[Rfam]
RNA: Actinobacteria sRNA Ms_IGR-5
RNA sequence: ACACGAGAAGGGAGGUGGUCCGAUACAUGAGUGGUUUACGGACGCGUGAGGUGACGGCGAGCUAGCCGUCCGGUCUGACCGGGUCAGCACCUGCUGACCCACCCAUGGCGGACCGGUCGUAGCGGCCGGCUCAAUCCAACGCCAACACCCGAACCCGCGGGCGCCGGAGAGUCCAUCCGGCCGGGGCUUCGACCACCUCCUCGGAGGGAAGCCUCGCCCAGCCCGCGGGUUCGUCCAC
Numbered sequence: 001a002c003a004c005g006a007g008a009a010g011g012g013a014g015g016u017g018g019u020c021c022g023a024u025a026c027a028u029g030a031g032u033g034g035u036u037u038a039c040g041g042a043c044g045c046g047u048g049a050g051g052u053g054a055c056g057g058c059g060a061g062c063u064a065g066c067c068g069u070c071c072g073g074u075c076u077g078a079c080c081g082g083g084u085c086a087g088c089a090c091c092u093g094c095u096g097a098c099c100c101a102c103c104c105a106u107g108g109c110g111g112a113c114c115g116g117u118c119g120u121a122g123c124g125g126c127c128g129g130c131u132c133a134a135u136c137c138a139a140c141g142c143c144a145a146c147a148c149c150c151g152a153a154c155c156c157g158c159g160g161g162c163g164c165c166g167g168a169g170a171g172u173c174c175a176u177c178c179g180g181c182c183g184g185g186g187c188u189u190c191g192a193c194c195a196c197c198u199c200c201u202c203g204g205a206g207g208g209a210a211g212c213c214u215c216g217c218c219c220a221g222c223c224c225g226c227g228g229g230u231u232c233g234u235c236c237a238c
Stems, first nucleotide, its partner, number of pairs: 015058002018055002060131004065126002068123002150233013163181006